[Rfam]
RNA sequence: UCACACGUAGUGCCGGGGUAACUAAAACUCUGAGUUCUCUCAGCUUCAGAGUUUUGGUACCCCGGCUCUAUGUGGA
Numbered sequence: 001u002c003a004c005a006c007g008u009a010g011u012g013c014c015g016g017g018g019u020a021a022c023u024a025a026a027a028c029u030c031u032g033a034g035u036u037c038u039c040u041c042a043g044c045u046u047c048a049g050a051g052u053u054u055u056g057g058u059a060c061c062c063c064g065g066c067u068c069u070a071u072g073u074g075g076a
Stems, first nucleotide, its partner, number of pairs: 001076002004074004009069002012066006019059002022056001024055010034044002